[Rfam]
RNA sequence: AUAGCUCCAGUGCUUAGUUCCCGGCAGCGAUUCCGGGAAGCGGGGAAACCACUAUUCAGGGGCGAAUCGAUUCGGGCGGCAUCAAGCCGCGCCGAUCCGUAGGGUACCAUCCACCCGAGUCCGUCAGCUAACCUCGUCAGCCUGAGAUGGGUCAU
Numbered sequence: 001a002u003a004g005c006u007c008c009a010g011u012g013c014u015u016a017g018u019u020c021c022c023g024g025c026a027g028c029g030a031u032u033c034c035g036g037g038a039a040g041c042g043g044g045g046a047a048a049c050c051a052c053u054a055u056u057c058a059g060g061g062g063c064g065a066a067u068c069g070a071u072u073c074g075g076g077c078g079g080c081a082u083c084a085a086g087c088c089g090c091g092c093c094g095a096u097c098c099g100u101a102g103g104g105u106a107c108c109a110u111c112c113a114c115c116c117g118a119g120u121c122c123g124u125c126a127g128c129u130a131a132c133c134u135c136g137u138c139a140g141c142c143u144g145a146g147a148u149g150g151g152u153c154a155u
Stems, first nucleotide, its partner, number of pairs: 012141003018039007040137006050059001060122003068099002102116004
Shown here is a 155-nucleotide sequence from Paenibacillus albicereus, a member of the family "c-di-AMP riboswitch aptamer (ydaO/yuaA leader)". The organism belongs to Paenibacillus, within Bacteria. Gene Ontology terms of the family: cyclic-di-AMP binding and regulation of gene expression. The literature on the family includes a 2004 paper in Proc Natl Acad Sci U S A by Barrick et al., "New RNA motifs suggest an expanded scope for riboswitches in bacterial genetic control".